[Rfam]
RNA sequence: UACUUCUAUCUGGGGUGCCUUUACUUUUAAGGCUGAGAUUUACCCAUCGAACCUGUAGGUUAAUACCUGCGUAGGGAGAUAGCGAAAAGAGUCG
Numbered sequence: 001u002a003c004u005u006c007u008a009u010c011u012g013g014g015g016u017g018c019c020u021u022u023a024c025u026u027u028u029a030a031g032g033c034u035g036a037g038a039u040u041u042a043c044c045c046a047u048c049g050a051a052c053c054u055g056u057a058g059g060u061u062a063a064u065a066c067c068u069g070c071g072u073a074g075g076g077a078g079a080u081a082g083c084g085a086a087a088a089g090a091g092u093c094g
Stems, first nucleotide, its partner, number of pairs: 006082005011046004017033005052075004056069004